Nucleotides: 122
Base pairs, nucleotide, nucleotide: 005019006018007017008016009015020059021058022057023056025054026053027052028051029050030049031048037045038044087109088104089103091101092100093099
Number, partner (000 for none) and nucleotide at each position: 001000u002000c003000c004000u005019u006018c007017c008016u009015u010000g011000u012000c013000u014000u015009g016008g017007g018006g019005a020059g021058c022057a023056g024000a025054a026053a027052u028051g029050u030049u031048c032000a033000a034000u035000g036000a037045a038044c039000g040000u041000c042000u043000a044038g045037u046000g047000a048031g049030a050029a051028c052027a053026u054025u055000g056023c057022u058021g059020c060000u061000g062000a063000c064000a065000c066000c067000a068000a069000u070000g071000a072000u073000a074000u075000a076000a077000a078000u079000a080000u081000c082000a083000a084000c085000c086000c087109c088104c089103g090000u091101u092100c093099g094000a095000c096000u097000a098000a099093c100092g101091a102000u103089c104088g105000u106000u107000c108000g109087g110000a111000a112000u113000u114000u115000u116000u117000g118000g119000a120000a121000a122000u
Description: Rfam assigns this 122-nucleotide RNA from Drosophila busckii to the family "U4atac minor spliceosomal RNA". Rfam 15.1 lists 1,648 matches to the family in 818 species. U4atac is an essential component of the minor U12-type spliceosome complex which is required for removal of the rarer class of eukaryotic introns (AT-AC, U12-type). The family's consensus secondary structure is taken from published work. The literature on the family includes a 2005 paper in RNA by Lorkovic et al., "Evolutionary conservation of minor U12-type spliceosome between plants and humans". Rfam links the family to the GO terms spliceosomal tri-snRNP complex assembly, mRNA 5'-splice site recognition and pre-mRNA 5'-splice site binding. The match comes from Rfam's covariance-model search (100 bits).